[Rfam]
RNA sequence: GACAUCCCCCCGGGAGAAGCCGGAUUAUCCGGUGCCGAAGGAGCAACCGCGCCUCGGAAACUCUCAGGCAAAAGGACCGGUGGGACGCG
Numbered sequence: 001g002a003c004a005u006c007c008c009c010c011c012g013g014g015a016g017a018a019g020c021c022g023g024a025u026u027a028u029c030c031g032g033u034g035c036c037g038a039a040g041g042a043g044c045a046a047c048c049g050c051g052c053c054u055c056g057g058a059a060a061c062u063c064u065c066a067g068g069c070a071a072a073a074g075g076a077c078c079g080g081u082g083g084g085a086c087g088c089g
Stems, first nucleotide, its partner, number of pairs: 006084003010080004020032004034069003037065002041063003047057002